[Rfam]
Nucleotides: 594
Base pairs, nucleotide, nucleotide: 003593004592005591007588008587015422016421017420018419020418021417022414023413024412025411026410028218029217030216031215035210036209037208038207039206040205041204044121045120046119047118048117049116050115051114052113053112054110055109056108057107058106059105060104071102072101073100074099075098078085079084125198126197127196128195129194135191136190137189138188143154144153145152146151171185172184173183174182175181221234222232223231224230235257236256237255238254239253240252260361261360266318267317268316269315270314271313272298273297275293276292277291278290279289280288299308300307323347324346325345328342329341330340331339349358350357351356372400373399374398375397376396377395380394381393382392383391431472433470435469437465438464439463440462441461442460446456447455483558484556485555486554487553488550489547490546491545492544493543496521499516500515501514502513503512504511523537524536525535527533564582565581566580567579568577569576570575
Number, partner (000 for none) and nucleotide at each position: 001000c002000g003593g004592g005591g006000a007588a008587a009000g010000a011000a012000g013000a014000c015422c016421c017420u018419g019000u020418u021417g022414a023413g024412c025411u026410u027000g028218a029217c030216u031215c032000u033000a034000g035210u036209u037208u038207g039206a040205c041204a042000u043000u044121g045120u046119g047118a048117a049116a050115a051114g052113a053112c054110a055109u056108a057107g058106a059105g060104g061000g062000u063000g064000u065000a066000g067000a068000a069000u070000a071102a072101g073100u074099g075098g076000g077000a078085g079084c080000u081000u082000c083000g084079g085078c086000g087000c088000c089000g090000g091000u092000g093000a094000a095000a096000u097000a098075c099074c100073a101072c102071u103000a104060c105059c106058u107057u108056u109055a110054u111000c112053g113052u114051c115050u116049u117048u118047u119046u120045a121044c122000u123000u124000a125198u126197u127196c128195a129194a130000u131000g132000a133000a134000g135191c136190g137189g138188a139000g140000c141000u142000g143154g144153g145152a146151u147000u148000a149000a150000c151146a152145u153144c154143c155000c156000a157000c158000c159000u160000u161000u162000u163000g164000g165000c166000u167000u168000u169000a170000a171185g172184g173183u174182c175181a176000u177000u178000u179000a180000c181175u182174g183173g184172c185171c186000g187000a188138u189137c190136c191135g192000g193000g194129u195128u196127g197126a198125a199000g200000a201000c202000a203000u204041u205040g206039u207038c208037a209036g210035g211000u212000g213000g214000g215031g216030a217029g218028u219000u220000u221234g222232g223231c224230u225000g226000g227000g228000g229000c230224g231223g232222c233000a234221c235257a236256u237255c238254u239253g240252u241000u242000a243000a244000a245000a246000g247000a248000u249000a250000a251000c252240g253239c254238a255237g256236g257235u258000g259000u260361c261360c262000u263000a264000a265000g266318g267317g268316g269315g270314a271313c272298u273297c274000a275293u276292g277291g278290a279289g280288a281000a282000c283000a284000g285000a286000a287000a288280u289279c290278u291277c292276c293275a294000g295000u296000a297273g298272a299308a300307c301000a302000a303000a304000a305000g306000g307300g308299u309000a310000a311000a312000a313271g314270u315269c316268c317267c318266c319000u320000u321000g322000a323347u324346u325345u326000u327000g328342a329341u330340u331339u332000u333000c334000a335000g336000u337000g338000u339331g340330a341329a342328u343000a344000c345325a346324a347323a348000c349358c350357a351356u352000g353000a354000a355000a356351g357350u358349g359000u360261g361260g362000c363000c364000u365000a366000u367000c368000g369000a370000u371000c372400c373399u374398u375397u376396a377395g378000u379000c380394c381393c382392u383391c384000g385000g386000a387000a388000u389000u390000u391383g392382a393381g394380g395377c396376u397375a398374g399373a400372g401000g402000u403000g404000c405000c406000a407000g408000a409000a410026a411025a412024g413023u414022u415000a416000c417021c418020a419018c420017a421016g422015g423000g424000a425000u426000a427000a428000c429000u430000g431472g432000c433470u434000u435469g436000u437465g438464g439463c440462a441461g442460c443000c444000a445000a446456g447455c448000g449000u450000u451000c452000a453000u454000a455447g456446c457000g458000a459000c460442g461441u462440u463439g464438c465437u466000u467000u468000u469435u470433g471000a472431u473000c474000c475000u476000u477000c478000g479000a480000u481000g482000u483558c484556g485555g486554c487553u488550c489547u490546u491545c492544c493543u494000a495000u496521c497000a498000u499516a500515c501514c502513g503512a504511a505000g506000c507000a508000g509000a510000a511504u512503u513502c514501g515500g516499u517000a518000a519000g520000c521496g522000u523537u524536g525535g526000a527533u528000u529000g530000u531000u532000c533527a534000c535525c536524c537523a538000c539000u540000a541000a542000u543493a544492g545491g546490g547489a548000a549000c550488g551000u552000g553487a554486g555485c556484u557000g558483g559000g560000u561000u562000u563000a564582g565581a566580c567579c568577g569576u570575c571000g572000u573000g574000a575570g576569a577568c578000a579567g580566g581565u582564u583000a584000g585000u586000u587008u588007u589000a590000c591005c592004c593003u594000a